Shown here is a 130-nucleotide RNA from Bos taurus, a member of the family "Small nucleolar RNA SNORA3/SNORA45 family". The family is grouped with related families in Rfam's "SNORA3 clan". The family's RNA type in Rfam is H/ACA-box small nucleolar RNA. Its family is annotated with RNA processing and nucleolus in the Gene Ontology.
RNA sequence: AUUGAGGCUAGGGUCACAUUUGGGUAUCAGCUGUUGCCUUAGUGUGCUAGAGUCCUUGAAGAGUAACUGCUGACCUUAUUCACUGACUGUGACCCUUAUGGCAUAGUCAGUCACCAGGUUAGUAACAUAU
Numbered sequence: 001a002u003u004g005a006g007g008c009u010a011g012g013g014u015c016a017c018a019u020u021u022g023g024g025u026a027u028c029a030g031c032u033g034u035u036g037c038c039u040u041a042g043u044g045u046g047c048u049a050g051a052g053u054c055c056u057u058g059a060a061g062a063g064u065a066a067c068u069g070c071u072g073a074c075c076u077u078a079u080u081c082a083c084u085g086a087c088u089g090u091g092a093c094c095c096u097u098a099u100g101g102c103a104u105a106g107u108c109a110g111u112c113a114c115c116a117g118g119u120u121a122g123u124a125a126c127a128u129a130u
Stems, first nucleotide, its partner, number of pairs: 002059005007053003012048002015046006023038004070122007082111005088105004093100001
Rfam describes the family as follows. The members of this family belong to the H/ACA class of snoRNAs which are thought to guide the sites of modification of uridines to pseudouridines.